[Rfam]
Source information:
Shown here is a 77-nucleotide RNA sequence from Dreissena polymorpha, a member of the family "mir-137 microRNA precursor family". The family's consensus secondary structure was predicted with RNAalifold. NCBI's taxonomy places the organism under Eukaryota, Euheterodonta, Myida, Dreissenidae, Dreissena. The match comes from Rfam's covariance-model search (65 bits).

RNA sequence: AUCAGAGCCGGGUAUUCUUGGGUUGAUAAUACUAUGCAGAAAAUUGUUAUUAUUGCUUGAGAAUACACGUAAAUGAU
Numbered sequence: 001a002u003c004a005g006a007g008c009c010g011g012g013u014a015u016u017c018u019u020g021g022g023u024u025g026a027u028a029a030u031a032c033u034a035u036g037c038a039g040a041a042a043a044u045u046g047u048u049a050u051u052a053u054u055g056c057u058u059g060a061g062a063a064u065a066c067a068c069g070u071a072a073a074u075g076a077u
Stems, first nucleotide, its partner, number of pairs: 001077004009069002012066012025054007032046001